[Rfam]
RNA: c-di-GMP-I riboswitch aptamer
Organism: Salipaludibacillus agaradhaerens
RNA sequence: ACUAGUUAAAGGCAAACCUGUUUAAAGAUAGGGACGCAAAGUUACGGGUCUAAGGGUCAUUUGCUUGUAUGAUCUAUGAUCGCCGGACCGCCUAU
Numbered sequence: 001a002c003u004a005g006u007u008a009a010a011g012g013c014a015a016a017c018c019u020g021u022u023u024a025a026a027g028a029u030a031g032g033g034a035c036g037c038a039a040a041g042u043u044a045c046g047g048g049u050c051u052a053a054g055g056g057u058c059a060u061u062u063g064c065u066u067g068u069a070u071g072a073u074c075u076a077u078g079a080u081c082g083c084c085g086g087a088c089c090g091c092c093u094a095u
Stems, first nucleotide, its partner, number of pairs: 012037002017032006041088003045085003048080003055074006